The record is a 143-nucleotide RNA sequence from Ciona savignyi, which matches "U8 small nucleolar RNA" in Rfam. It is annotated as a C/D-box small nucleolar RNA. Gene Ontology terms of the family: nucleolus and RNA processing. The base pairs follow the family's consensus structure, which is taken from published work. Rfam 15.1 lists 1,597 matches to the family in 457 species. Taxonomically the source falls in Ciona (Eukaryota, Chordata, Ascidiacea, Cionidae). The literature on the family includes a 2010 paper in Nucleic Acids Res by Hokii et al., "A small nucleolar RNA functions in rRNA processing in Caenorhabditis elegans".
RNA sequence: UCAUCAGUUCGGGUGAUCCUUACCUGUUGUCCUUAAAUGGACUUCAGAUAAGUACGUGAUGACAAUGGGUAUUAUGAGUUUAAUGACUUAUAAACACCCUAGUCGGGUAGCGGUCGCAACAACCGUUAUCUGGCAUGUCUGAG
Dot-bracket structure: .......................(((..(..((.....))..).)))............................(..(.(............).)..)....((((((((.............))))))))...........